Shown here is a 173-nucleotide RNA from Paraburkholderia graminis, a member of the family "Burkholderia RNA 14". The family has 3 seed sequences and 98 matches in Rfam 15.1. The family's RNA type in Rfam is small RNA. Co-purified with Hfq, expression confirmed by Northern blot. Putative functional homologue of PA-SraF. Overlaps coding sequence. Taxonomically the source falls in Paraburkholderia graminis (Bacteria, Pseudomonadati, Pseudomonadota, Betaproteobacteria).
RNA sequence: GUUGGCGUCGUCACCGUCCAGCCGACUACCGUACCUGUCGUCACCGAAUUGCCCGGCCGCACCAGCGCCUUCCUGGUCGCGCAAGUGCGCGCGCGGGUCGACGGCAUCGUGCUGCGCCGUGAGUUCACGGAAGGCGGUCAGGUCAAGGCGGGUCAACGUCUGUACAAGAUCGA
Numbered sequence: 001g002u003u004g005g006c007g008u009c010g011u012c013a014c015c016g017u018c019c020a021g022c023c024g025a026c027u028a029c030c031g032u033a034c035c036u037g038u039c040g041u042c043a044c045c046g047a048a049u050u051g052c053c054c055g056g057c058c059g060c061a062c063c064a065g066c067g068c069c070u071u072c073c074u075g076g077u078c079g080c081g082c083a084a085g086u087g088c089g090c091g092c093g094c095g096g097g098u099c100g101a102c103g104g105c106a107u108c109g110u111g112c113u114g115c116g117c118c119g120u121g122a123g124u125u126c127a128c129g130g131a132a133g134g135c136g137g138u139c140a141g142g143u144c145a146a147g148g149c150g151g152g153u154c155a156a157c158g159u160c161u162g163u164a165c166a167a168g169a170u171c172g173a
Stems, first nucleotide, its partner, number of pairs: 004053004008047003011043001013041002016038001018037001021034001023031002056149003059143002066136003072133001074131001078093005094121002097118001099116002102114005157172002159169003

On this family, see Ramos et al., Genomics 2013: "Experimental identification of small non-coding regulatory RNAs in the opportunistic human pathogen Burkholderia cenocepacia J2315".